[Rfam]
RNA sequence: CCGCAGAGUGCGUGUACGGACUCUGCCCGCAGGAUCUGGUGUACUUCCCCGAUACCAGAUCCUGCGGACAGGGCCCUAUACGCGCCCUGCAAUACC
Dot-bracket structure: .........(((((((.((.(((((.((((((((((((((((.........)))))))))))))))).))))).))))))))).............
Numbered sequence: 001c002c003g004c005a006g007a008g009u010g011c012g013u014g015u016a017c018g019g020a021c022u023c024u025g026c027c028c029g030c031a032g033g034a035u036c037u038g039g040u041g042u043a044c045u046u047c048c049c050c051g052a053u054a055c056c057a058g059a060u061c062c063u064g065c066g067g068a069c070a071g072g073g074c075c076c077u078a079u080a081c082g083c084g085c086c087c088u089g090c091a092a093u094a095c096c
Stems, first nucleotide, its partner, number of pairs: 010083007018076002021073005027067016